Description: The family of this 93-nucleotide sequence from Paenibacillus oceani is "c-di-GMP-I riboswitch aptamer".
RNA sequence: UCAUAUCAAUGGCAAACUUGCCGAAAGGCAGGGACACAAAGCUUCAGGUCUAACGCUCCACGCUCGAUGAGCCAUGACAGCUGGGCUGCCGAC
Numbered sequence: 001u002c003a004u005a006u007c008a009a010u011g012g013c014a015a016a017c018u019u020g021c022c023g024a025a026a027g028g029c030a031g032g033g034a035c036a037c038a039a040a041g042c043u044u045c046a047g048g049u050c051u052a053a054c055g056c057u058c059c060a061c062g063c064u065c066g067a068u069g070a071g072c073c074a075u076g077a078c079a080g081c082u083g084g085g086c087u088g089c090c091g092a093c
Base pairs, nucleotide, nucleotide: 012037017032018031019030020029021028022027040087041086042085043084045083046082047081048078049077050076055072056071057070058069

Overview:
The match comes from Rfam's covariance-model search (72 bits).